[Rfam]
RNA sequence: GCGGAUGGCCGGGCGGCCGCGCUUCCCGGGCCUCGCGCCCGCGGGGGUGAGGAAAGUCCGGGCUCCACGGAGGCGCGGCGCCGGGUAACGCCCGGCCGGCGAAGGGGUGACCCCGAGCCGAGGGAAAGCGCCACAGAGAUGAGACCGCCGUUCUCCCCGUUCCGUCAUGGAACGGCAUGGGACGGCAAGGCUGAAACGGUGGGGUAAGAGCCCACCGCGUCCCCGGCGACGGGGACGGCACGGCAAGCCCCGCCGGGAGCAAGAUCAAGUUGGGCCGGCCGCGGGUAUCCUCGGAUGCGCCGCAAGGGGUGGCCUUCGCCCCGCCGGCCAUGGUGGAUCGCGAGAAGCCGGGGGCGACCCCGGUUCCAGAUGAAUGGUCGCCCAGGGGUCUUUCGAGGCCCCGGACAGAACCCGGCUUACAGGCCGUUCGCUGCA
Numbered sequence: 001g002c003g004g005a006u007g008g009c010c011g012g013g014c015g016g017c018c019g020c021g022c023u024u025c026c027c028g029g030g031c032c033u034c035g036c037g038c039c040c041g042c043g044g045g046g047g048u049g050a051g052g053a054a055a056g057u058c059c060g061g062g063c064u065c066c067a068c069g070g071a072g073g074c075g076c077g078g079c080g081c082c083g084g085g086u087a088a089c090g091c092c093c094g095g096c097c098g099g100c101g102a103a104g105g106g107g108u109g110a111c112c113c114c115g116a117g118c119c120g121a122g123g124g125a126a127a128g129c130g131c132c133a134c135a136g137a138g139a140u141g142a143g144a145c146c147g148c149c150g151u152u153c154u155c156c157c158c159g160u161u162c163c164g165u166c167a168u169g170g171a172a173c174g175g176c177a178u179g180g181g182a183c184g185g186c187a188a189g190g191c192u193g194a195a196a197c198g199g200u201g202g203g204g205u206a207a208g209a210g211c212c213c214a215c216c217g218c219g220u221c222c223c224c225g226g227c228g229a230c231g232g233g234g235a236c237g238g239c240a241c242g243g244c245a246a247g248c249c250c251c252g253c254c255g256g257g258a259g260c261a262a263g264a265u266c267a268a269g270u271u272g273g274g275c276c277g278g279c280c281g282c283g284g285g286u287a288u289c290c291u292c293g294g295a296u297g298c299g300c301c302g303c304a305a306g307g308g309g310u311g312g313c314c315u316u317c318g319c320c321c322c323g324c325c326g327g328c329c330a331u332g333g334u335g336g337a338u339c340g341c342g343a344g345a346a347g348c349c350g351g352g353g354g355c356g357a358c359c360c361c362g363g364u365u366c367c368a369g370a371u372g373a374a375u376g377g378u379c380g381c382c383c384a385g386g387g388g389u390c391u392u393u394c395g396a397g398g399c400c401c402c403g404g405a406c407a408g409a410a411c412c413c414g415g416c417u418u419a420c421a422g423g424c425c426g427u428u429c430g431c432u433g434c435a
Stems, first nucleotide, its partner, number of pairs: 001431010011420001012382007020049007054418003058415005063259004071315004076255005081095005096122001097120004123250002128248002130244003145190002147186008198216006217239001218237008263339004273329006306322005346365008
RNA: Bacterial RNase P class A